The family of this 186-nucleotide RNA from Ravinvirus N15 is "Gammaproteobacterial sRNA STnc100". NCBI's taxonomy places the organism under Viruses, Duplodnaviria, Heunggongvirae, Caudoviricetes, Ravinvirus N15. By type it is a small RNA. A search with the family's covariance model found it, with a score of 72 bits. The family's consensus secondary structure was predicted with CMfinder.

[Rfam]
RNA sequence: UUAAAAAUGCUAUAAGGUAGCAUUAUGUCGCUGUUGUGAAUCCACCUAUGCGGAUGGGCGUACAGCUGAGCUAUCUCUGAUGAGAUCGUAAACGAGACCGCGGACUCUUUGGCUGGAGAGUUCACUGGGAGGCACCCAGCACAACAGCAACCAAUUACAAACCCUGCUUCGGCAGGGUUUUUUAUU
Numbered sequence: 001u002u003a004a005a006a007a008u009g010c011u012a013u014a015a016g017g018u019a020g021c022a023u024u025a026u027g028u029c030g031c032u033g034u035u036g037u038g039a040a041u042c043c044a045c046c047u048a049u050g051c052g053g054a055u056g057g058g059c060g061u062a063c064a065g066c067u068g069a070g071c072u073a074u075c076u077c078u079g080a081u082g083a084g085a086u087c088g089u090a091a092a093c094g095a096g097a098c099c100g101c102g103g104a105c106u107c108u109u110u111g112g113c114u115g116g117a118g119a120g121u122u123c124a125c126u127g128g129g130a131g132g133c134a135c136c137c138a139g140c141a142c143a144a145c146a147g148c149a150a151c152c153a154a155u156u157a158c159a160a161a162c163c164c165u166g167c168u169u170c171g172g173c174a175g176g177g178u179u180u181u182u183u184a185u186u
Stems, first nucleotide, its partner, number of pairs: 014156002030148002033145006043058001045056001047054001067088002093100002102123004107118003125139005159180008